[Rfam]
RNA: Small nucleolar RNA SNORD26
RNA sequence: CUACAAUGAUGAGAUCCAGAACUCUCUCUUUCUGAGAUUUCAGUGGAGAAAACUUAUUUACUUCUGAGUAGC
Numbered sequence: 001c002u003a004c005a006a007u008g009a010u011g012a013g014a015u016c017c018a019g020a021a022c023u024c025u026c027u028c029u030u031u032c033u034g035a036g037a038u039u040u041c042a043g044u045g046g047a048g049a050a051a052a053c054u055u056a057u058u059u060a061c062u063u064c065u066g067a068g069u070a071g072c
Base pairs, nucleotide, nucleotide: 001071002070003069004068